The family of this 36-nucleotide RNA sequence from Saccharopolyspora erythraea is "CRISPR RNA direct repeat element".
The family's consensus secondary structure was predicted with WAR.
Rfam's curators put it in the seed alignment.
RNA sequence: CCGUCACCGACGCGCAGCGUCGGUCCUCAUUGCGGC
Numbered sequence: 001c002c003g004u005c006a007c008c009g010a011c012g013c014g015c016a017g018c019g020u021c022g023g024u025c026c027u028c029a030u031u032g033c034g035g036c
Base pairs, nucleotide, nucleotide: 006024007023008022009021010020011019012018013017
Rfam links the family to the GO term defense response. The family has 3 seed sequences and 36 matches in Rfam 15.1.